[Rfam]
RNA sequence: GACCCGUCACAACGGCUACCUGACGUGACGGGAAAAUCUUAAUGGAGCA
Numbered sequence: 001g002a003c004c005c006g007u008c009a010c011a012a013c014g015g016c017u018a019c020c021u022g023a024c025g026u027g028a029c030g031g032g033a034a035a036a037u038c039u040u041a042a043u044g045g046a047g048c049a
Stems, first nucleotide, its partner, number of pairs: 004031007013022002015048003019045002
Dot-bracket structure: ...(((((((..(([[[.[[))..)))))))............]]]]].
Rfam assigns this 49-nucleotide sequence from Roseovarius indicus to the family "SAM/SAH riboswitch aptamer". Gene Ontology terms of the family: S-adenosylmethionine metabolic process and regulation of gene expression. NCBI's taxonomy places the organism under Bacteria, Pseudomonadota, Rhodobacterales, Roseobacteraceae, Roseovarius.